[Rfam]
RNA sequence: UGGCCUGAAAUGAUGUUCUGAGUUCAUGUCUCUUCUCUGAGAUGUCUCAUGGAGACAGCUAGAUGUAUUUCUGAUCAGGCUU
Numbered sequence: 001u002g003g004c005c006u007g008a009a010a011u012g013a014u015g016u017u018c019u020g021a022g023u024u025c026a027u028g029u030c031u032c033u034u035c036u037c038u039g040a041g042a043u044g045u046c047u048c049a050u051g052g053a054g055a056c057a058g059c060u061a062g063a064u065g066u067a068u069u070u071c072u073g074a075u076c077a078g079g080c081u082u
Stems, first nucleotide, its partner, number of pairs: 002081004
RNA: Small nucleolar RNA SNORD111
Organism: Prunella fulvescens